[Rfam]
RNA sequence: ACGAUCCUUUCCUCGGGGCUGCGUUACUGUCCAGUGAGCGUGUAGUGAGGACAGUGCUGCUGACGCCUAAACAACACACGUGCCUCCCUGGCUCUCUGCUUUCCCGGGGUGCAAUAUUUGGAAAA
Numbered sequence: 001a002c003g004a005u006c007c008u009u010u011c012c013u014c015g016g017g018g019c020u021g022c023g024u025u026a027c028u029g030u031c032c033a034g035u036g037a038g039c040g041u042g043u044a045g046u047g048a049g050g051a052c053a054g055u056g057c058u059g060c061u062g063a064c065g066c067c068u069a070a071a072c073a074a075c076a077c078a079c080g081u082g083c084c085u086c087c088c089u090g091g092c093u094c095u096c097u098g099c100u101u102u103c104c105c106g107g108g109g110u111g112c113a114a115u116a117u118u119u120g121g122a123a124a125a
Stems, first nucleotide, its partner, number of pairs: 006018004021060003026055007038046002082112002085109003090101002093098001
Annotation
Rfam assigns this 125-nucleotide RNA sequence from Cnephaeus nilssonii to the family "U4atac minor spliceosomal RNA". Rfam's curators write: U4atac is an essential component of the minor U12-type spliceosome complex which is required for removal of the rarer class of eukaryotic introns (AT-AC, U12-type). The organism belongs to Cnephaeus, within Eukaryota. Rfam 15.1 lists 1,648 matches to the family in 818 species. It scores 78 bits against the family's covariance model. Clan: U4 clan. The family's RNA type in Rfam is spliceosomal small nuclear RNA.